Rfam assigns this 87-nucleotide sequence from Gossypium mustelinum to the family "MIR7486 microRNA precursor family". It scores 91 bits against the family's covariance model. The family has 9 seed sequences and 10,132 matches in Rfam 15.1.
[Rfam]
RNA sequence: CACGUCAGCACGAUUUGCUGACGUGGCAACAAAUCGCGUCCUAGAGGGCGCGAUUUGUUGCCACAUCAUCAAAUCGCGCUGACGUUG
Numbered sequence: 001c002a003c004g005u006c007a008g009c010a011c012g013a014u015u016u017g018c019u020g021a022c023g024u025g026g027c028a029a030c031a032a033a034u035c036g037c038g039u040c041c042u043a044g045a046g047g048g049c050g051c052g053a054u055u056u057g058u059u060g061c062c063a064c065a066u067c068a069u070c071a072a073a074u075c076g077c078g079c080u081g082a083c084g085u086u087g
Stems, first nucleotide, its partner, number of pairs: 002085008011076007019068003023064016040047002